[Rfam]
RNA: Makes More Granules Regulator RNA (mmgR)
Organism: Sphingorhabdus profundilacus
RNA sequence: GGACCAUGCCUUAUAGGCAUCCUCUCCUAAAAACUUAUUCAGGGUCGGCCUCGGUCGACCCUUUUUUUUAGGCUUU
Numbered sequence: 001g002g003a004c005c006a007u008g009c010c011u012u013a014u015a016g017g018c019a020u021c022c023u024c025u026c027c028u029a030a031a032a033a034c035u036u037a038u039u040c041a042g043g044g045u046c047g048g049c050c051u052c053g054g055u056c057g058a059c060c061c062u063u064u065u066u067u068u069u070a071g072g073c074u075u076u
Base pairs, nucleotide, nucleotide: 008018009017010016011015042061043060044059045058046057047056048055049054
Dot-bracket structure: .......((((...)))).......................((((((((....))))))))...............